[Rfam]
RNA: U4atac minor spliceosomal RNA
Organism: Darwinula stevensoni
RNA sequence: UUUGUCCUUAUCAACGGGGAAGCGUCAAGGGCCAAUGAGCGUAUGGCGAGACCCUUGCUGCUAACACCCAUUGAACUUAUAACUGCAUCAGAGGCCUCACAAGUCCCUGGUGCAAUUUCUGGAAGU
Dot-bracket structure: ....(((((......))))).(((..(((((.(.....((.....))..).)))))..))).......................((((((..((.((....)).)).)))))).............